[Rfam]
RNA: U4 spliceosomal RNA
RNA sequence: AGCUUUGCGCAGUGGCAGUUUCAUAGCCAAUGAGAUUUAUCCGAGGCGUGAUUAUUGCUAAUUAAAAUUGGCACCUGAAAAGUUAAAAUAGCAAUGAAACAGAAGUUUCACCUUUUAAAAUAUCCUUUUGCUAGUAUUAAAUAUUAUUUUCAUAAAA
Number, nucleotide and partner (000 for none) at each position: 001a000002g000003c000004u000005u000006u000007g000008c000009g000010c000011a000012g000013u000014g000015g000016c000017a000018g000019u000020u000021u051022c050023a049024u048025a000026g047027c046028c045029a000030a000031u000032g000033a000034g042035a000036u000037u000038u000039a000040u000041c000042c034043g000044a000045g028046g027047c026048g024049u023050g022051a021052u000053u000054a000055u000056u000057g000058c000059u000060a000061a000062u000063u000064a000065a000066a000067a000068u000069u000070g000071g000072c000073a000074c000075c000076u000077g000078a000079a000080a000081a000082g000083u000084u139085a138086a137087a135088a000089u133090a132091g131092c130093a129094a128095u000096g126097a000098a000099a000100c000101a000102g000103a000104a000105g000106u000107u000108u000109c000110a000111c000112c000113u000114u000115u000116u000117a000118a000119a000120a000121u000122a000123u000124c000125c000126u096127u000128u094129u093130g092131c091132u090133a089134g000135u087136a000137u086138u085139a084140a000141a000142u000143a000144u000145u000146a000147u000148u157149u156150u155151c000152a000153u000154a000155a150156a149157a148